[Rfam]
RNA sequence: UAAUAUCUUCAGGGUUUGGUGAGGUGAAAACCAAUUCCAGACCGGUGGUGAUAGUCCACGAGCAUAUGCUGAACUGGUGAAAUUCCAGUACCGACGGUAAAGUCCGGAUGAGAGAAGAUAAUU
Number, nucleotide and partner (000 for none) at each position: 001u000002a000003a000004u120005a119006u118007c117008u116009u115010c114011a000012g000013g000014g000015u000016u000017u039018g038019g037020u000021g000022a000023g000024g000025u000026g000027a000028a000029a000030a000031c000032c000033a000034a000035u000036u000037c019038c018039a017040g000041a103042c102043c093044g092045g059046u058047g057048g056049u000050g000051a000052u000053a000054g091055u090056c048057c047058a046059c045060g000061a000062g069063c068064a000065u000066a000067u000068g063069c062070u000071g000072a000073a089074c088075u087076g086077g085078u000079g000080a000081a000082a000083u000084u000085c077086c076087a075088g074089u073090a055091c054092c044093g043094a000095c106096g105097g104098u000099a000100a000101a000102g042103u041104c097105c096106g095107g000108a000109u000110g000111a000112g000113a000114g010115a009116a008117g007118a006119u005120a004121a000122u000123u000